[Rfam]
Rfam assigns this 102-nucleotide RNA sequence from Pseudoneobacillus rhizosphaerae to the family "Purine riboswitch aptamer".
It scores 86 bits against the family's covariance model.
Gene Ontology term of the family: purine nucleobase biosynthetic process.
About the family: Riboswitches are metabolite binding domains within certain messenger RNAs that serve as precision sensors for their corresponding targets. Allosteric rearrangement of mRNA structure is mediated by ligand binding, and this results in modulation of gene expression. A class of riboswitches that selectively recognises guanine and becomes saturated at concentrations as low as 5 nM. In Bacillus subtilis, this mRNA motif is located on at least five separate transcriptional units that together encode 17 genes that are mostly involved in purine transport and purine nucleotide biosynthesis. It has also been shown that some members of this family are specific for adenine instead. Hence this family are termed purine riboswitches.
RNA sequence: UGAAUAAUUGUAUAGCACCUUCGUAUAUCCUCGAUAAUAUGGAUCGAAAGUUUCUACCGAAUCACCGUAAAUGAUUUGACUAUGAAGGGCAGGAAUCUUUUU
Number, nucleotide and partner (000 for none) at each position: 001u000002g000003a000004a000005u000006a000007a000008u000009u000010g000011u000012a000013u000014a000015g000016c000017a000018c088019c087020u086021u085022c084023g083024u082025a081026u000027a000028u000029c000030c000031u047032c046033g045034a044035u043036a000037a000038u000039a000040u000041g000042g000043a035044u034045c033046g032047a031048a000049a000050g000051u000052u000053u000054c000055u000056a000057c000058c078059g077060a076061a075062u074063c073064a072065c000066c000067g000068u000069a000070a000071a000072u064073g063074a062075u061076u060077u059078g058079a000080c000081u025082a024083u023084g022085a021086a020087g019088g018089g000090c000091a000092g000093g000094a000095a000096u000097c000098u000099u000100u000101u000102u000